[Rfam]
RNA sequence: GUCCAUGAGGGAGAUGGCAUGCCUCCCGUUCCCCCGCGGAACAAACCGCUCCAGUGCGAACGCACCGAAGCUGAUGAUGCCUGCACCACC
Numbered sequence: 001g002u003c004c005a006u007g008a009g010g011g012a013g014a015u016g017g018c019a020u021g022c023c024u025c026c027c028g029u030u031c032c033c034c035c036g037c038g039g040a041a042c043a044a045a046c047c048g049c050u051c052c053a054g055u056g057c058g059a060a061c062g063c064a065c066c067g068a069a070g071c072u073g074a075u076g077a078u079g080c081c082u083g084c085a086c087c088a089c090c
Stems, first nucleotide, its partner, number of pairs: 010026004016081005048071003
The family of this 90-nucleotide sequence is "Fluoride riboswitch aptamer (crcB RNA motif)".
A search with the family's covariance model found it, with a score of 36 bits.
Gene Ontology terms of the family: response to fluoride and positive regulation of gene expression.
Pairs were carried over by alignment from the consensus structure, which is taken from published work.